Rfam assigns this 418-nucleotide RNA sequence from Candidatus Phycosocius bacilliformis to the family "Bacterial RNase P class A". Its Rfam clan is "RNaseP clan". The organism belongs to Candidatus Phycosocius, within Bacteria. By type it is a ribozyme. It scores 279 bits against the family's covariance model.
[Rfam]
RNA sequence: UCAGACGGUCAGGCGGCCGCUCUUGCACGGCCUGAAAGGGCGCAAGGGAGGAAAGUCCGGGCUCCACGCAAGCAUGGUGGCGGGUAAGGCCCGCCGGGAUCGGGUCGUCAGGCCGGGUCUUAGGGAUAGCGCCACAGAGAAUAGACCGCCCCAAUGGUUUCGAUCAGACGGGUAAGGGUGAAACGGUGGGGUAAGAGCCCACCGCUCGGACCGUAAGGAAGGAGGCACGGCAAGCCCCACCAGGAGCAAGACCGAAUAGGGACACCAUGUAGCCGGGCUUGCCCGGUUACGGCCGGUUUGCGGGUUGGCGUGUCCGGGUAGGUCGCACGAGGCCCUGUGCGAACAGGGUCCCAGAUGAAUGGUCGCCCAGAGGGUUCACCCCCUUGGACAAAACCCGGCUUAUAGACCGUCUGACGAU
Numbered sequence: 001u002c003a004g005a006c007g008g009u010c011a012g013g014c015g016g017c018c019g020c021u022c023u024u025g026c027a028c029g030g031c032c033u034g035a036a037a038g039g040g041c042g043c044a045a046g047g048g049a050g051g052a053a054a055g056u057c058c059g060g061g062c063u064c065c066a067c068g069c070a071a072g073c074a075u076g077g078u079g080g081c082g083g084g085u086a087a088g089g090c091c092c093g094c095c096g097g098g099a100u101c102g103g104g105u106c107g108u109c110a111g112g113c114c115g116g117g118u119c120u121u122a123g124g125g126a127u128a129g130c131g132c133c134a135c136a137g138a139g140a141a142u143a144g145a146c147c148g149c150c151c152c153a154a155u156g157g158u159u160u161c162g163a164u165c166a167g168a169c170g171g172g173u174a175a176g177g178g179u180g181a182a183a184c185g186g187u188g189g190g191g192u193a194a195g196a197g198c199c200c201a202c203c204g205c206u207c208g209g210a211c212c213g214u215a216a217g218g219a220a221g222g223a224g225g226c227a228c229g230g231c232a233a234g235c236c237c238c239a240c241c242a243g244g245a246g247c248a249a250g251a252c253c254g255a256a257u258a259g260g261g262a263c264a265c266c267a268u269g270u271a272g273c274c275g276g277g278c279u280u281g282c283c284c285g286g287u288u289a290c291g292g293c294c295g296g297u298u299u300g301c302g303g304g305u306u307g308g309c310g311u312g313u314c315c316g317g318g319u320a321g322g323u324c325g326c327a328c329g330a331g332g333c334c335c336u337g338u339g340c341g342a343a344c345a346g347g348g349u350c351c352c353a354g355a356u357g358a359a360u361g362g363u364c365g366c367c368c369a370g371a372g373g374g375u376u377c378a379c380c381c382c383c384u385u386g387g388a389c390a391a392a393a394c395c396c397g398g399c400u401u402a403u404a405g406a407c408c409g410u411c412u413g414a415c416g417a418u
Stems, first nucleotide, its partner, number of pairs: 001414010011403001012367007020048007028040001053401003057398005062246004072301002075242005080094005095123001096121006124237002129235002131231003146177002148173004155166004185203006204226001205224003211218002250324004260315006294308001296306001298304001331350008